[Rfam]
RNA sequence: AAUAAGUGCAGCCGUGAAAAUCCGUGUCCAACGUUUGACCAUCCGUCUUAUUUGAAAAAUUUAUAAAUUUUUUUUAAAAAAUUAGUCACACAUAAAGUACUAUUCAUGUUUUAUCAUCUAAUAACAAUAAAAAUAGUAAUCAUAAGUUUUUUUCAAAUAAGACGAACGGUCAAACGUUGGAGAUGAAUAGUACAAAACUGCACUUUUU
Numbered sequence: 001a002a003u004a005a006g007u008g009c010a011g012c013c014g015u016g017a018a019a020a021u022c023c024g025u026g027u028c029c030a031a032c033g034u035u036u037g038a039c040c041a042u043c044c045g046u047c048u049u050a051u052u053u054g055a056a057a058a059a060u061u062u063a064u065a066a067a068u069u070u071u072u073u074u075u076a077a078a079a080a081a082u083u084a085g086u087c088a089c090a091c092a093u094a095a096a097g098u099a100c101u102a103u104u105c106a107u108g109u110u111u112u113a114u115c116a117u118c119u120a121a122u123a124a125c126a127a128u129a130a131a132a133a134u135a136g137u138a139a140u141c142a143u144a145a146g147u148u149u150u151u152u153u154c155a156a157a158u159a160a161g162a163c164g165a166a167c168g169g170u171c172a173a174a175c176g177u178u179g180g181a182g183a184u185g186a187a188u189a190g191u192a193c194a195a196a197a198c199u200g201c202a203c204u205u206u207u208u
Stems, first nucleotide, its partner, number of pairs: 027181006034174007042166001044164008